RNA sequence: GGUAAAAUAUAGUUACAGAAAACAUUGCGAGGGUUCCCUAAGAACCCUCAUUUGCCCUGGUGACUUUCCCUCCUAGUUGCCGGGGUGUUUUU
Number, nucleotide and partner (000 for none) at each position: 001g000002g000003u000004a000005a000006a000007a000008u000009a000010u000011a000012g000013u000014u000015a000016c000017a000018g000019a000020a000021a000022a000023c000024a000025u000026u000027g000028c000029g049030a048031g047032g046033g045034u044035u043036c000037c000038c000039u000040a000041a000042g000043a035044a034045c033046c032047c031048u030049c029050a000051u000052u000053u000054g086055c085056c084057c083058u082059g081060g080061u079062g078063a077064c076065u075066u000067u000068c000069c000070c000071u000072c000073c000074u000075a065076g064077u063078u062079g061080c060081c059082g058083g057084g056085g055086u054087g000088u000089u000090u000091u000092u000
RNA: atoC RNA
Organism: Oryzomonas rubra